The record is a 130-nucleotide RNA sequence from Crocuta crocuta, which matches "Small nucleolar RNA SNORA65" in Rfam. Gene Ontology terms of the family: RNA processing and nucleolus. On this family, see Huttenhofer et al., EMBO J 2001: "RNomics: an experimental approach that identifies 201 candidates for novel, small, non-messenger RNAs in mouse". Pairs were carried over by alignment from the consensus structure, which was predicted with RNAalifold. Rfam's curators write: U65 belongs to the H/ACA class of snoRNAs which are thought to guide the sites of modification of uridines to pseudouridines. The source organism's lineage runs through Eukaryota, Opisthokonta, Eumetazoa, Deuterostomia and Crocuta. By type it is an H/ACA-box small nucleolar RNA.

RNA sequence: CCGACCACUGCACCCGAUCAGUUCUCUAUUGAUUGGUGUGAUGCAGUGGUGAGCUGAUAGUAAACCCCAGCUUAGAAAACAGGGUUGUUAUUCACAUGGAUGACUCUGUGCCGAAAACAUGCUAACAUGC
Numbered sequence: 001c002c003g004a005c006c007a008c009u010g011c012a013c014c015c016g017a018u019c020a021g022u023u024c025u026c027u028a029u030u031g032a033u034u035g036g037u038g039u040g041a042u043g044c045a046g047u048g049g050u051g052a053g054c055u056g057a058u059a060g061u062a063a064a065c066c067c068c069a070g071c072u073u074a075g076a077a078a079a080c081a082g083g084g085u086u087g088u089u090a091u092u093c094a095c096a097u098g099g100a101u102g103a104c105u106c107u108g109u110g111c112c113g114a115a116a117a118c119a120u121g122c123u124a125a126c127a128u129g130c
Stems, first nucleotide, its partner, number of pairs: 005049006017037005022031001067121001069120001070118001072116002075112001080108006088100002